[Rfam]
RNA: sucA-II RNA
Organism: Pseudomonas sp. SDI
RNA sequence: CCAAGGUGCGGGCCCUUGCCCGCACCGAGGUGAAACCCGAGCGAGGGCCAAAAGCCCGAGCUUUUACCUAUGAAGAUAUGAGACCAGCAGGGGCAUCCGGGCUGGUACCCGGUACAUCAGCGGGAAACUAGGUGGCUUUGGUUCAGUCGCUGCAUACGGACUCAACCCAGGCUUGCUGUGGUUCUUGCCGAUCGAGGCCCCGAACCGAGGGUGACCA
Numbered sequence: 001c002c003a004a005g006g007u008g009c010g011g012g013c014c015c016u017u018g019c020c021c022g023c024a025c026c027g028a029g030g031u032g033a034a035a036c037c038c039g040a041g042c043g044a045g046g047g048c049c050a051a052a053a054g055c056c057c058g059a060g061c062u063u064u065u066a067c068c069u070a071u072g073a074a075g076a077u078a079u080g081a082g083a084c085c086a087g088c089a090g091g092g093g094c095a096u097c098c099g100g101g102c103u104g105g106u107a108c109c110c111g112g113u114a115c116a117u118c119a120g121c122g123g124g125a126a127a128c129u130a131g132g133u134g135g136c137u138u139u140g141g142u143u144c145a146g147u148c149g150c151u152g153c154a155u156a157c158g159g160a161c162u163c164a165a166c167c168c169a170g171g172c173u174u175g176c177u178g179u180g181g182u183u184c185u186u187g188c189c190g191a192u193c194g195a196g197g198c199c200c201c202g203a204a205c206c207g208a209g210g211g212u213g214a215c216c217a
Stems, first nucleotide, its partner, number of pairs: 001030002005026009039063004046056003090201004094196001097112005116192003120188003124184003128180001131177005136171003140167002145162004
Dot-bracket structure: ((..(((((((((....)))))))))..))........((((...(((.....)))...))))..........................(((((..(((((......)))))...(((.(((.(((.(..((((((((.((...((((..........))))...)).))).)))))..).))).))).)))...).))))................